[Rfam]
RNA: tRNA
RNA sequence: GGGCGCGUAGCUCAGUGGUAGAGCUCUGGUUUUACACACCAGCGGUCGGCGGUUCGAUACCGUCCGCGCCCA
Numbered sequence: 001g002g003g004c005g006c007g008u009a010g011c012u013c014a015g016u017g018g019u020a021g022a023g024c025u026c027u028g029g030u031u032u033u034a035c036a037c038a039c040c041a042g043c044g045g046u047c048g049g050c051g052g053u054u055c056g057a058u059a060c061c062g063u064c065c066g067c068g069c070c071c072a
Stems, first nucleotide, its partner, number of pairs: 001071007010024004026042005048064005